RNA: mir-7 microRNA precursor family
Organism: Maylandia zebra
RNA sequence: CCACAGCAGCAUGGAAGACUAGUGAUUUUGUUGUUUGUUGUUUAAAAGGACAACAAAUCAUUGUCUCCCUCAUUGCUGUGU
Numbered sequence: 001c002c003a004c005a006g007c008a009g010c011a012u013g014g015a016a017g018a019c020u021a022g023u024g025a026u027u028u029u030g031u032u033g034u035u036u037g038u039u040g041u042u043u044a045a046a047a048g049g050a051c052a053a054c055a056a057a058u059c060a061u062u063g064u065c066u067c068c069c070u071c072a073u074u075g076c077u078g079u080g081u
Base pairs, nucleotide, nucleotide: 001080004078005077007075008074009073013069014068016066017065018064019063022061023060024059025058026057027056028055030054031053032052033051034050035049